RNA sequence: CUUCACCGACCCCAGCCACAGCGGGCCCUGCCCGCCCCGCUCCUGACCGUACGUCGCCAGCAGCGACUGCGCCUC
Numbered sequence: 001c002u003u004c005a006c007c008g009a010c011c012c013c014a015g016c017c018a019c020a021g022c023g024g025g026c027c028c029u030g031c032c033c034g035c036c037c038c039g040c041u042c043c044u045g046a047c048c049g050u051a052c053g054u055c056g057c058c059a060g061c062a063g064c065g066a067c068u069g070c071g072c073c074u075c
Base pairs, nucleotide, nucleotide: 016024017023031071033069038065039064043060044059045058047056049054
Dot-bracket structure: ...............((.....))......(.(....((...(((.(.(....).).)))...))...).)....
About this RNA: A member of the RNA family "ASpks TB sRNA" from Streptomyces sp. FH025, 75 nucleotides long. NCBI's taxonomy places the organism under Bacteria, Bacillati, Actinomycetota, Actinomycetes, Streptomyces.